[Rfam]
RNA sequence: UAAACGGCCCUUUUCAGGGCCACCAAAUUUGUUCAAAAGAAUUUGA
Numbered sequence: 001u002a003a004a005c006g007g008c009c010c011u012u013u014u015c016a017g018g019g020c021c022a023c024c025a026a027a028u029u030u031g032u033u034c035a036a037a038a039g040a041a042u043u044u045g046a
Base pairs, nucleotide, nucleotide: 006021007020008019009018010017011016

This 46-nucleotide RNA sequence from Mytilus coruscus belongs to the Rfam family "Histone 3' UTR stem-loop".